[Rfam]
Nucleotides: 072
Stems, first nucleotide, its partner, number of pairs: 001072006
Number, partner (000 for none) and nucleotide at each position: 001072g002071a003070g004069c005068g006067a007000a008000a009000u010000g011000a012000u013000g014000g015000u016000a017000u018000a019000c020000c021000a022000u023000c024000u025000u026000u027000c028000g029000g030000g031000a032000c033000u034000g035000a036000c037000c038000u039000g040000u041000c042000u043000g044000a045000u046000g047000a048000a049000a050000c051000u052000u053000a054000a055000a056000a057000a058000a059000a060000a061000a062000a063000c064000u065000g066000a067006u068005c069004g070003c071002u072001c
The record is a 72-nucleotide sequence from Hymenochirus boettgeri, which matches "Small nucleolar RNA SNORD2" in Rfam. Its family is annotated with RNA processing and nucleolus in the Gene Ontology. Lineage of the source: Eukaryota > Chordata > Sarcopterygii > Pipidae > Hymenochirus. A search with the family's covariance model found it, with a score of 62 bits.